Source information: The family of this 86-nucleotide RNA from Branchiostoma lanceolatum is "mir-2060 microRNA precursor family". The family's consensus secondary structure was predicted with RNAalifold. Rfam 15.1 lists 3,696 matches to the family in 4 species. Taxonomically the source falls in Branchiostoma (Eukaryota, Metazoa, Eumetazoa, Amphioxiformes). The match comes from Rfam's covariance-model search (83 bits).

RNA sequence: GUGUGUGGAUGGUGUUCAGCACCAGGGACAGGUGUGUUUACCUGUGUGUGGAUGGUGUUUAGCACUAGGGGCGGUCAUGUUUACAU
Number, nucleotide and partner (000 for none) at each position: 001g072002u071003g000004u000005g000006u000007g000008g000009a000010u067011g066012g065013u064014g063015u062016u061017c000018a059019g058020c057021a056022c055023c054024a053025g000026g047027g000028a045029c044030a043031g042032g041033u040034g039035u000036g000037u000038u000039u034040a033041c032042c031043u030044g029045u028046g000047u026048g000049u000050g000051g000052a000053u024054g023055g022056u021057g020058u019059u018060u000061a016062g015063c014064a013065c012066u011067a010068g000069g000070g000071g002072c001073g000074g000075u000076c000077a000078u000079g000080u000081u000082u000083a000084c000085a000086u000